[Rfam]
Nucleotides: 105
Stems, first nucleotide, its partner, number of pairs: 007061006015051002020048002022045001023042006062078006080100001082103001086098003
Number, partner (000 for none) and nucleotide at each position: 001000c002000a003000a004000a005000u006000a007061g008060c009059c010058g011057a012056c013000u014000a015051g016050g017000g018000u019000u020048c021047c022045g023042g024041u025040u026039c027038g028037c029000c030000a031000g032000u033000a034000a035000c036000g037028g038027c039026g040025g041024a042023u043000g044000a045022c046000u047021g048020g049000u050016c051015c052000g053000a054000g055000a056012g057011u058010u059009g060008g061007c062078g063077a064076c065075c066074u067073c068000c069000u070000c071000g072000a073067g074066a075065g076064g077063u078062u079000a080100c081000a082103c083000g084000g085000c086098g087097g088096g089000a090000c091000a092000a093000a094000a095000g096088c097087c098086c099000g100080g101000g102000a103082g104000a105000a